[Rfam]
RNA sequence: AUGCCUUAUGAUAAAGCUAUAAUUAUUUCAUCAUAAUUACAUUGAUUUAAUUAUCAAAAAGAGAUUAUGAUAUAAU
Numbered sequence: 001a002u003g004c005c006u007u008a009u010g011a012u013a014a015a016g017c018u019a020u021a022a023u024u025a026u027u028u029c030a031u032c033a034u035a036a037u038u039a040c041a042u043u044g045a046u047u048u049a050a051u052u053a054u055c056a057a058a059a060a061g062a063g064a065u066u067a068u069g070a071u072a073u074a075a076u
Stems, first nucleotide, its partner, number of pairs: 030071008
Dot-bracket structure: .............................((((((((..........................)))))))).....